[Rfam]
RNA sequence: CCAGAGGGUCGGGCGGCCGCGGGUGUCUCAGGACACGCGAGGAAAGUCCGGGCUCCGCGAAACGACGGUGCCGGGUAACGCCCGGCGAGGGUGACCUCAGGGAAAGUGCCACAGAGAGCAGACGGCCAACCCUCGGCUUCGGUCGGGGCGGUCAGAGUGAAAGGGUGCGGUAAGAGCGCACCGCGCGCCUGGUAACAGGGGCGGCACGGCAAACCCCACCGGGAGCAAGAUCGAAUAGGGGUGGCACAUGGGCUUCGUUUCAGCUCGUCACCCGGGUUGAUUGCUUGAGGCGACAGGCAACCGUCGUCCUAGAGGAAUGGUCGCCUAACUUCCGCAUCGAAGGAUCGGAAAUGGACAGAACCCGGCUUACAGACCCUCUGGCAUC
Numbered sequence: 001c002c003a004g005a006g007g008g009u010c011g012g013g014c015g016g017c018c019g020c021g022g023g024u025g026u027c028u029c030a031g032g033a034c035a036c037g038c039g040a041g042g043a044a045a046g047u048c049c050g051g052g053c054u055c056c057g058c059g060a061a062a063c064g065a066c067g068g069u070g071c072c073g074g075g076u077a078a079c080g081c082c083c084g085g086c087g088a089g090g091g092u093g094a095c096c097u098c099a100g101g102g103a104a105a106g107u108g109c110c111a112c113a114g115a116g117a118g119c120a121g122a123c124g125g126c127c128a129a130c131c132c133u134c135g136g137c138u139u140c141g142g143u144c145g146g147g148g149c150g151g152u153c154a155g156a157g158u159g160a161a162a163g164g165g166u167g168c169g170g171u172a173a174g175a176g177c178g179c180a181c182c183g184c185g186c187g188c189c190u191g192g193u194a195a196c197a198g199g200g201g202c203g204g205c206a207c208g209g210c211a212a213a214c215c216c217c218a219c220c221g222g223g224a225g226c227a228a229g230a231u232c233g234a235a236u237a238g239g240g241g242u243g244g245c246a247c248a249u250g251g252g253c254u255u256c257g258u259u260u261c262a263g264c265u266c267g268u269c270a271c272c273c274g275g276g277u278u279g280a281u282u283g284c285u286u287g288a289g290g291c292g293a294c295a296g297g298c299a300a301c302c303g304u305c306g307u308c309c310u311a312g313a314g315g316a317a318u319g320g321u322c323g324c325c326u327a328a329c330u331u332c333c334g335c336a337u338c339g340a341a342g343g344a345u346c347g348g349a350a351a352u353g354g355a356c357a358g359a360a361c362c363c364g365g366c367u368u369a370c371a372g373a374c375c376c377u378c379u380g381g382c383a384u385c
Stems, first nucleotide, its partner, number of pairs: 001381010011370001012325007020039002023036005044368003048365005053225004061259004066221005071085005086100001087098004101216002106214002108210003125152003130147003164182006183205001184203003188199004229282004239273006250266005289308006296301001
About this RNA
A member of the RNA family "Bacterial RNase P class A" from Sphingomonas sp. Leaf198, 385 nucleotides long. Rfam classes the family as a ribozyme. NCBI's taxonomy places the organism under Bacteria, Pseudomonadati, Alphaproteobacteria, Sphingomonadales, Sphingomonas. Clan: RNaseP clan. The family's consensus secondary structure is taken from published work. It scores 298 bits against the family's covariance model.